Rfam assigns this 255-nucleotide RNA sequence from Pseudomonas sp. TAD18 to the family "Pseudomonas sRNA P24".
This small RNA (sRNA) was computationally identified in the genome of the opportunistic pathogen Pseudomonas aeruginosa and its expression verified by Northern blot analysis. P24 is conserved across several Pseudomonas species and in Azotobacter vinelandii. It appears to be consistently located between a hypothetical protein gene and a transcriptional regulator gene (AsnC family) in the genomes of all these species.
Pairs were carried over by alignment from the consensus structure, which was predicted with RNAalifold.
Taxonomically the source falls in Pseudomonas (Bacteria, Pseudomonadati, Pseudomonadota, Pseudomonadaceae).
It is annotated as a non-coding RNA gene.

[Rfam]
RNA sequence: UUGCGCAAGUACUGUUUUAUUGAGCAAUCUUCGCAAUCGCCUGCCGCACGCCAACGCCUAUUCUUACUACCAGAAUCACUGCCCGGACAUAGAGUCCACUGCGGCCCGCCGAAUCAGGCCAGCCGCGACCGCCAACCCCACAGGGUUGCCCCGGUCCCCGGGCUACGCACUGUCCAGAAGACGGCGCGAGGUGAGCCAACACCACAAGUGUUGAGCCAGGACGAAAAAUUCUAAGGGCGGCCGACGGGUCGCCCU
Numbered sequence: 001u002u003g004c005g006c007a008a009g010u011a012c013u014g015u016u017u018u019a020u021u022g023a024g025c026a027a028u029c030u031u032c033g034c035a036a037u038c039g040c041c042u043g044c045c046g047c048a049c050g051c052c053a054a055c056g057c058c059u060a061u062u063c064u065u066a067c068u069a070c071c072a073g074a075a076u077c078a079c080u081g082c083c084c085g086g087a088c089a090u091a092g093a094g095u096c097c098a099c100u101g102c103g104g105c106c107c108g109c110c111g112a113a114u115c116a117g118g119c120c121a122g123c124c125g126c127g128a129c130c131g132c133c134a135a136c137c138c139c140a141c142a143g144g145g146u147u148g149c150c151c152c153g154g155u156c157c158c159c160g161g162g163c164u165a166c167g168c169a170c171u172g173u174c175c176a177g178a179a180g181a182c183g184g185c186g187c188g189a190g191g192u193g194a195g196c197c198a199a200c201a202c203c204a205c206a207a208g209u210g211u212u213g214a215g216c217c218a219g220g221a222c223g224a225a226a227a228a229u230u231c232u233a234a235g236g237g238c239g240g241c242c243g244a245c246g247g248g249u250c251g252c253c254c255u
Base pairs, nucleotide, nucleotide: 002011003010004009043057044056076194077193078192079191080190081163082162083161084160085097086096087095088094101126102125103124104123105122108119109118110117127156128155129154130153131152134147135146136145137144138143166188167187168186170184171183172182173181174180195216196215197213198212199211200210201209202208234255235254236253237252239250240249241248242247
The match comes from Rfam's covariance-model search (260 bits).